Source information
Group II catalytic intron D1-D4-3: a 171-nucleotide RNA from Nitrosospira sp. Nsp1.

[Rfam]
RNA sequence: AUGAGGGCGACUGGGCGUGGGGAGGAGGCGUUGAGCGAAACUGCGAGCUGAUGAAAAAGAACCAGAUAGACGGCGCUGCCGGCAGGGCGAUCGGACAAUAAACCGCGAAGCUCAUGUGUGAUCAAGGCGAGGUAGCGUAGAUCCGGCGGUUGUGCGAGGAAGGAAUGCGUU
Numbered sequence: 001a002u003g004a005g006g007g008c009g010a011c012u013g014g015g016c017g018u019g020g021g022g023a024g025g026a027g028g029c030g031u032u033g034a035g036c037g038a039a040a041c042u043g044c045g046a047g048c049u050g051a052u053g054a055a056a057a058a059g060a061a062c063c064a065g066a067u068a069g070a071c072g073g074c075g076c077u078g079c080c081g082g083c084a085g086g087g088c089g090a091u092c093g094g095a096c097a098a099u100a101a102a103c104c105g106c107g108a109a110g111c112u113c114a115u116g117u118g119u120g121a122u123c124a125a126g127g128c129g130a131g132g133u134a135g136c137g138u139a140g141a142u143c144c145g146g147c148g149g150u151u152g153u154g155c156g157a158g159g160a161a162g163g164a165a166u167g168c169g170u171u
Stems, first nucleotide, its partner, number of pairs: 002015001005012002028171001032167001036163001042156004046151005062146002065143003073138003077134004082128002085113004092105003